[Rfam]
RNA: T-box leader
RNA sequence: UUUAAAGCAAUGAUAAGAAAAGUAACUUAUUUAUACUUUUACAGAGAAUCUGGCAAUUAGGUGAGAGCAGAUGAAGUCACUAACUAAGUGAAAAUGGUCUUGGAGCGGCGUACCGAGUGAGAAAUCAUUAGGCUACGAUGGGUGCACCCAUUAUAGUGCUAGAGUAUCGAAGGUAACUUCCGUACUUGAAGAGGUUAGUGAUGUGAGUCACUAAUAAAUGAAGGUGGUAACACGAUUAAACAAUCGUCCUUUUA
Numbered sequence: 001u002u003u004a005a006a007g008c009a010a011u012g013a014u015a016a017g018a019a020a021a022g023u024a025a026c027u028u029a030u031u032u033a034u035a036c037u038u039u040u041a042c043a044g045a046g047a048a049u050c051u052g053g054c055a056a057u058u059a060g061g062u063g064a065g066a067g068c069a070g071a072u073g074a075a076g077u078c079a080c081u082a083a084c085u086a087a088g089u090g091a092a093a094a095u096g097g098u099c100u101u102g103g104a105g106c107g108g109c110g111u112a113c114c115g116a117g118u119g120a121g122a123a124a125u126c127a128u129u130a131g132g133c134u135a136c137g138a139u140g141g142g143u144g145c146a147c148c149c150a151u152u153a154u155a156g157u158g159c160u161a162g163a164g165u166a167u168c169g170a171a172g173g174u175a176a177c178u179u180c181c182g183u184a185c186u187u188g189a190a191g192a193g194g195u196u197a198g199u200g201a202u203g204u205g206a207g208u209c210a211c212u213a214a215u216a217a218a219u220g221a222a223g224g225u226g227g228u229a230a231c232a233c234g235a236u237u238a239a240a241c242a243a244u245c246g247u248c249c250u251u252u253u254a
Stems, first nucleotide, its partner, number of pairs: 007106002015101004025089005037075002048072005054067001109137004114132001139150003194215007221251004232247005